[Rfam]
RNA sequence: UCGAGGUGGCGAUAGAAAUUUCACAGGUCUGUCAAUCCCCUGAAACAUAUAAUGAUGUUAUUGUGAUAUCUCGACAGGUUCUGAUCGA
Number, nucleotide and partner (000 for none) at each position: 001u088002c087003g086004a085005g000006g000007u000008g000009g000010c000011g000012a000013u000014a000015g000016a000017a000018a000019u000020u000021u000022c000023a000024c000025a000026g000027g000028u000029c000030u000031g000032u000033c000034a000035a000036u000037c000038c000039c000040c000041u000042g000043a000044a000045a000046c000047a000048u000049a000050u000051a000052a000053u000054g000055a000056u000057g000058u000059u000060a000061u000062u000063g000064u000065g000066a000067u000068a000069u000070c000071u000072c000073g000074a000075c000076a000077g000078g000079u000080u000081c000082u000083g000084a000085u004086c003087g002088a001
The family of this 88-nucleotide RNA sequence from Raphanus sativus is "Small nucleolar RNA snoR14". The pairing is the family consensus, mapped onto this sequence. NCBI's taxonomy places the organism under Eukaryota, Euphyllophyta, Magnoliopsida, Pentapetalae, Raphanus.